[Rfam]
RNA sequence: UGCUGUGAUGGUGUAAUUUGCGUCUUACUCUACACACAGCGACAGUUGCCUGCUGUCUCAUGCUGGUGUGGAAGGUUGAUGAAUAUUAAGUCUGAGCU
Numbered sequence: 001u002g003c004u005g006u007g008a009u010g011g012u013g014u015a016a017u018u019u020g021c022g023u024c025u026u027a028c029u030c031u032a033c034a035c036a037c038a039g040c041g042a043c044a045g046u047u048g049c050c051u052g053c054u055g056u057c058u059c060a061u062g063c064u065g066g067u068g069u070g071g072a073a074g075g076u077u078g079a080u081g082a083a084u085a086u087u088a089a090g091u092c093u094g095a096g097c098u
Stems, first nucleotide, its partner, number of pairs: 002097002021081004030071005039063002041057005
Dot-bracket structure: .((.................((((.....(((((....(((((((.......)))))....))...)))))......))))..............)).

Shown here is a 98-nucleotide sequence from Cyprinus carpio, a member of the family "Small nucleolar RNA SNORD16". Pairs were carried over by alignment from the consensus structure, which was predicted with PFOLD. For this family Rfam cites "A novel small nucleolar RNA (U16) is encoded inside a ribosomal protein intron and originates by processing of the pre-mRNA" (Fragapane et al., EMBO J, 1993). A search with the family's covariance model found it, with a score of 91 bits. Gene Ontology terms of the family: nucleolus and RNA processing.